[Rfam]
RNA: Eukaryotic small subunit ribosomal RNA, nucleotides 1825 to 1992
RNA sequence: CCGCCCGUCGCUACUACCGAUUGAAUGGUUUAGUGAGGUCGUUGGAUUGGCGUCGUUGUAGUGGCUUUGCCGCUCGACUGAUGCUGAGAAGAUGACCUAAUUUGACUAUUUAGAGGAAGUAAAAGUCGUAACAAGGUUUCCGUAGGUGAACCUGCGGAAGGAUCAUUA
Number, nucleotide and partner (000 for none) at each position: 001c135002c000003g132004c000005c000006c128007g127008u000009c125010g000011c000012u121013a120014c119015u118016a000017c116018c115019g000020a000021u112022u000023g111024a110025a109026u108027g107028g106029u105030u104031u000032a102033g101034u100035g000036a000037g097038g096039u095040c094041g093042u092043u091044g000045g000046a000047u087048u086049g085050g084051c083052g082053u081054c080055g079056u000057u077058g000059u000060a074061g073062u072063g071064g070065c000066u000067u000068u000069g000070c064071c063072g062073c061074u060075c000076g000077a057078c000079u055080g054081a053082u052083g051084c050085u049086g048087a047088g000089a000090a000091g043092a042093u041094g040095a039096c038097c037098u000099a000100a034101u033102u032103u000104g030105a029106c028107u027108a026109u025110u024111u023112a021113g000114a000115g018116g017117a000118a015119g014120u013121a012122a000123a000124a000125g009126u000127c007128g006129u000130a000131a000132c003133a000134a000135g001136g000137u160138u159139u158140c157141c156142g155143u154144a153145g152146g151147u000148g000149a000150a000151c146152c145153u144154g143155c142156g141157g140158a139159a138160g137161g000162a000163u000164c000165a000166u000167u000168a000